[Rfam]
RNA sequence: GGGGGCGAUCGGCUUCGACUGGAUCGCCGUAGAUUGAGGUGGCGUGUCGUGGUUAAUCUGCAGGCCACGUAAAAAGCAGAUUAAACAAUAACUGCAAAUAAUAAACAAUUUGCAAUGGCUUGCUAAUUUAGGUUAGCGUAGCUCCAGCCUAGGGAUCCCUGACUGAGGAGACCGAAAGCUGGUUGACAAAAUCAGUCUGGUAUCAGGUCAAUGUUCGCUACGCCUGAUACGAGAUAAGUGGUGAACUGGUUACUGGAGGUUUUGUUUAUUGACCCAAAGGUAACGAGAAACAAUCGAUAAACUACACACGUAGAGGCUUCUCUCAAAGCAUCACAGGACGCGGGUUCGAUUCCCGCCGCCUCCAUUC
Numbered sequence: 001g002g003g004g005g006c007g008a009u010c011g012g013c014u015u016c017g018a019c020u021g022g023a024u025c026g027c028c029g030u031a032g033a034u035u036g037a038g039g040u041g042g043c044g045u046g047u048c049g050u051g052g053u054u055a056a057u058c059u060g061c062a063g064g065c066c067a068c069g070u071a072a073a074a075a076g077c078a079g080a081u082u083a084a085a086c087a088a089u090a091a092c093u094g095c096a097a098a099u100a101a102u103a104a105a106c107a108a109u110u111u112g113c114a115a116u117g118g119c120u121u122g123c124u125a126a127u128u129u130a131g132g133u134u135a136g137c138g139u140a141g142c143u144c145c146a147g148c149c150u151a152g153g154g155a156u157c158c159c160u161g162a163c164u165g166a167g168g169a170g171a172c173c174g175a176a177a178g179c180u181g182g183u184u185g186a187c188a189a190a191a192u193c194a195g196u197c198u199g200g201u202a203u204c205a206g207g208u209c210a211a212u213g214u215u216c217g218c219u220a221c222g223c224c225u226g227a228u229a230c231g232a233g234a235u236a237a238g239u240g241g242u243g244a245a246c247u248g249g250u251u252a253c254u255g256g257a258g259g260u261u262u263u264g265u266u267u268a269u270u271g272a273c274c275c276a277a278a279g280g281u282a283a284c285g286a287g288a289a290a291c292a293a294u295c296g297a298u299a300a301a302c303u304a305c306a307c308a309c310g311u312a313g314a315g316g317c318u319u320c321u322c323u324c325a326a327a328g329c330a331u332c333a334c335a336g337g338a339c340g341c342g343g344g345u346u347c348g349a350u351u352c353c354c355g356c357c358g359c360c361u362c363c364a365u366u367c
Stems, first nucleotide, its partner, number of pairs: 001363007019336003022332003030326001032324002036320005043310005048069005056081006116135007144182005150175001152173002156169002161196001165192001200230009219241001247286001249284006259274001261272001264302004269296001271294001340356005
Source information
Rfam assigns this 367-nucleotide RNA from Polystyrenella longa to the family "transfer-messenger RNA". A reference for the family is Williams and Bartel (1996), "Phylogenetic analysis of tmRNA secondary structure", RNA. The organism belongs to Polystyrenella, within Bacteria.